[Rfam]
Rfam assigns this 47-nucleotide sequence from Granulicatella elegans to the family "PreQ1 (pre queuosine) riboswitch aptamer". Rfam describes the family as follows. This family is a bacterial riboswitch that binds to the metabolite preQ1, an intermediate in the biosynthesis of the modified nucleoside queuosine from GTP. One example of this riboswitch is located in the leader of the Bacillus subtilis ykvJKLM (queCDEF) operon which encodes four genes necessary for queuosine production. PreQ1 binding to the riboswitch aptamer is thought to induce premature transcription termination within the leader to down-regulate expression of these genes. A reference for the family is Reader et al. (2004), "Identification of four genes necessary for biosynthesis of the modified nucleoside queuosine", J Biol Chem. The base pairs follow the family's consensus structure.

RNA sequence: ACGCUCGAGGUUCGCAACCAUCCCUCGAUUCAAAAAACUAGGAGGAA
Numbered sequence: 001a002c003g004c005u006c007g008a009g010g011u012u013c014g015c016a017a018c019c020a021u022c023c024c025u026c027g028a029u030u031c032a033a034a035a036a037a038c039u040a041g042g043a044g045g046a047a
Base pairs, nucleotide, nucleotide: 006027007026008025009024010023016039